A member of the RNA family "sRNA regulator of biofilms A", 227 nucleotides long. Pairs were carried over by alignment from the consensus structure, which was predicted with R-scape. The literature on the family includes a 2017 paper in PLoS One by Taylor et al., "A novel small RNA is important for biofilm formation and pathogenicity in Pseudomonas aeruginosa". By type it is a small RNA. Important for biofilm formation and pathogenicity.
RNA sequence: AUCAGGGGCCCUGGCAAGGGCCUUCGGAUCGCCGCUCUAACCUACCCACCUGAGCCGAUUCGUGUCUGUACCGCCCACAAGGUGUGUUUGACGAGAUUGCGACUGGAACGAAGUUGUCCCGAGGGACGGAAGCGUAAUUAGGUAGAUCGGCAACACACUGAUGGAACGCACCAAGGCCCACGACGCCCGCAUGCGCCCCGCAGCUCGCCUUCACCUGCUCACUUUCC
Numbered sequence: 001a002u003c004a005g006g007g008g009c010c011c012u013g014g015c016a017a018g019g020g021c022c023u024u025c026g027g028a029u030c031g032c033c034g035c036u037c038u039a040a041c042c043u044a045c046c047c048a049c050c051u052g053a054g055c056c057g058a059u060u061c062g063u064g065u066c067u068g069u070a071c072c073g074c075c076c077a078c079a080a081g082g083u084g085u086g087u088u089u090g091a092c093g094a095g096a097u098u099g100c101g102a103c104u105g106g107a108a109c110g111a112a113g114u115u116g117u118c119c120c121g122a123g124g125g126a127c128g129g130a131a132g133c134g135u136a137a138u139u140a141g142g143u144a145g146a147u148c149g150g151c152a153a154c155a156c157a158c159u160g161a162u163g164g165a166a167c168g169c170a171c172c173a174a175g176g177c178c179c180a181c182g183a184c185g186c187c188c189g190c191a192u193g194c195g196c197c198c199c200g201c202a203g204c205u206c207g208c209c210u211u212c213a214c215c216u217g218c219u220c221a222c223u224u225u226c227c
Stems, first nucleotide, its partner, number of pairs: 005024008028059004035054003061149002064147005073083003086138001091135003119129002156163002167195004175187003201217003205213001